[Rfam]
RNA sequence: CUUUCCAUUUAUUUGCUGCUAUAGUCUUUCAAUGAUAUGAGUAGUUAUAUGCACAGGAUAAAACAAUGUUGAGCCACUGUAAAUUCAGAUGGAGUAACCAUUUCAUCUCUUCUGCAUGGUCUAGACAUUG
Number, nucleotide and partner (000 for none) at each position: 001c000002u000003u058004u057005c056006c000007a000008u053009u000010u000011a000012u000013u000014u000015g045016c044017u043018g042019c041020u040021a000022u037023a036024g000025u035026c034027u000028u000029u000030c000031a000032a000033u000034g026035a025036u023037a022038u000039g000040a020041g019042u018043a017044g016045u015046u000047a000048u000049a000050u000051g000052c000053a008054c000055a000056g005057g004058a003059u000060a000061a000062a000063a000064c000065a000066a000067u000068g000069u124070u123071g122072a000073g120074c119075c118076a117077c000078u116079g115080u114081a113082a000083a000084u000085u000086c000087a108088g107089a106090u105091g104092g103093a102094g101095u100096a000097a000098c000099c000100a095101u094102u093103u092104c091105a090106u089107c088108u087109c000110u000111u000112c000113u081114g080115c079116a078117u076118g075119g074120u073121c000122u071123a070124g069125a000126c000127a000128u000129u000130g000